[Rfam]
Rfam assigns this 299-nucleotide RNA sequence from Callorhinchus milii to the family "Metazoan signal recognition particle RNA". From the family's description: The signal recognition particle (SRP) is a universally conserved ribonucleoprotein. It is involved in the co-translational targeting of proteins to membranes. The eukaryotic SRP consists of a 300-nucleotide 7S RNA and six proteins: SRPs 72, 68, 54, 19, 14, and 9. Archaeal SRP consists of a 7S RNA and homologues of the eukaryotic SRP19 and SRP54 proteins. Rfam classes the family as a non-coding RNA gene.
RNA sequence: GCCGGGCGCGGUGGCGCGCGCCUGUUAUCCGGCUGCUCGGAGGCUGAGGCUGGUGGAUCGCUUGAGGCCAGGAGUUCUGGGCUGCAGCGGCCUGUGCCGAUCGGGCGUCCGCGCUAAGCUCGGCGUCUAUAUGGUGUCUCGGGGGGAGCCCGGGGGCACCAGGUCACGCUAAGGAGGGGUGAACCGGCCCAGGUCGGGAACGGAGCAGGUCAAAGCCUUCGCGCCGAUCAGUAGCGGGAUCGCGCCUGUGAAUAGACGCUGCACUUCAGCCUCGUCAAUACAGCGAAACACAGUCUUUU
Number, nucleotide and partner (000 for none) at each position: 001g044002c043003c042004g023005g022006g021007c020008g019009c018010g017011g000012u000013g000014g000015c000016g000017c010018g009019c008020g007021c006022c005023u004024g000025u000026u000027a000028u041029c040030c039031g000032g000033c000034u000035g000036c000037u000038c000039g030040g029041a028042g003043g002044c001045u000046g297047a296048g295049g294050c293051u292052g291053g000054u000055g000056g000057a000058u286059c285060g284061c283062u282063u000064g000065a000066g276067g275068c274069c000070a272071g271072g270073a000074g000075u000076u000077c269078u268079g267080g266081g265082c000083u263084g262085c261086a260087g259088c258089g257090g000091c000092c255093u254094g253095u252096g000097c250098c000099g000100a000101u000102c248103g247104g246105g245106c244107g243108u242109c238110c237111g000112c236113g235114c234115u233116a232117a000118g229119c000120u227121c226122g225123g224124c223125g222126u221127c000128u000129a164130u163131a000132u161133g160134g159135u158136g157137u156138c155139u154140c153141g000142g151143g150144g149145g000146g000147a000148g000149c144150c143151c142152g000153g140154g139155g138156g137157c136158a135159c134160c133161a132162g000163g130164u129165c000166a000167c000168g000169c173170u000171a000172a000173g169174g000175a000176g219177g218178g217179g216180u215181g000182a000183a000184c000185c000186g211187g210188c209189c208190c000191a000192g000193g000194u203195c202196g201197g000198g000199a000200a000201c196202g195203g194204a000205g000206c000207a000208g189209g188210u187211c186212a000213a000214a000215g180216c179217c178218u177219u176220c000221g126222c125223g124224c123225c122226g121227a120228u000229c118230a000231g000232u116233a115234g114235c113236g112237g110238g109239a000240u000241c000242g108243c107244g106245c105246c104247u103248g102249u000250g097251a000252a095253u094254a093255g092256a000257c089258g088259c087260u086261g085262c084263a083264c000265u081266u080267c079268a078269g077270c072271c071272u070273c000274g068275u067276c066277a000278a000279u000280a000281c000282a062283g061284c060285g059286a058287a000288a000289c000290a000291c052292a051293g050294u049295c048296u047297u046298u000299u000